[Rfam]
RNA sequence: UAUUGUGAGCAGUCGCAGUACUACAUUGAAAAGUGUAGUGUUGAGGAAAGUCCACGCUCGCCUAAGCUGUGAUGCUUAGAGUUUGGGUGCCUGACGAAAAAAUAAGUCAGGGCAGUAUGAAAGUGCUGACGGCGGUGAAAUGGACUCACUGAGUUCAGAAUAGCCUGAAAGUGCCACAGUGACGAAGUCCUUUUGGCGACAAAAGGAGUGGAACGAGGUAAACCCCACUUGCGAGAAACCUAAAUUAUGGUAAGGGAGCUAUCCGGAGGGAAUAAGAACUGACGGAUGGAUUGAAUAAUGGAUUUGCGACAAAUUCGUUAUUUGAUAGAUAGAUGGCUGCUACCUCAGAAAUGAGGUACAGAACGUGGCUUAUAGCA
Numbered sequence: 001u002a003u004u005g006u007g008a009g010c011a012g013u014c015g016c017a018g019u020a021c022u023a024c025a026u027u028g029a030a031a032a033g034u035g036u037a038g039u040g041u042u043g044a045g046g047a048a049a050g051u052c053c054a055c056g057c058u059c060g061c062c063u064a065a066g067c068u069g070u071g072a073u074g075c076u077u078a079g080a081g082u083u084u085g086g087g088u089g090c091c092u093g094a095c096g097a098a099a100a101a102a103u104a105a106g107u108c109a110g111g112g113c114a115g116u117a118u119g120a121a122a123g124u125g126c127u128g129a130c131g132g133c134g135g136u137g138a139a140a141u142g143g144a145c146u147c148a149c150u151g152a153g154u155u156c157a158g159a160a161u162a163g164c165c166u167g168a169a170a171g172u173g174c175c176a177c178a179g180u181g182a183c184g185a186a187g188u189c190c191u192u193u194u195g196g197c198g199a200c201a202a203a204a205g206g207a208g209u210g211g212a213a214c215g216a217g218g219u220a221a222a223c224c225c226c227a228c229u230u231g232c233g234a235g236a237a238a239c240c241u242a243a244a245u246u247a248u249g250g251u252a253a254g255g256g257a258g259c260u261a262u263c264c265g266g267a268g269g270g271a272a273u274a275a276g277a278a279c280u281g282a283c284g285g286a287u288g289g290a291u292u293g294a295a296u297a298a299u300g301g302a303u304u305u306g307c308g309a310c311a312a313a314u315u316c317g318u319u320a321u322u323u324g325a326u327a328g329a330u331a332g333a334u335g336g337c338u339g340c341u342a343c344c345u346c347a348g349a350a351a352u353g354a355g356g357u358a359c360a361g362a363a364c365g366u367g368g369c370u371u372a373u374a375g376c377a
Stems, first nucleotide, its partner, number of pairs: 004377003007373001008341007016043010048371003052368005057235005062079006085230005090111006112130001113128006131225002134165003142156004171223002173219003188207008239255003259289007290326017343356005
RNA: Bacterial RNase P class B